[Rfam]
RNA sequence: AUGAUGGUUGCGGGAGAGAACGCUUAACUAGCGUCACCGAAGGAGCAAAGCUUUGUUCAAACUCUCAGGUAAAAAAACCGUAACUGGACC
Numbered sequence: 001a002u003g004a005u006g007g008u009u010g011c012g013g014g015a016g017a018g019a020a021c022g023c024u025u026a027a028c029u030a031g032c033g034u035c036a037c038c039g040a041a042g043g044a045g046c047a048a049a050g051c052u053u054u055g056u057u058c059a060a061a062c063u064c065u066c067a068g069g070u071a072a073a074a075a076a077a078c079c080g081u082a083a084c085u086g087g088a089c090c
Base pairs, nucleotide, nucleotide: 006085007084008083009082010081011080012079013078020034021033022032023031036070037069038068039066040065043064044063045062049057050056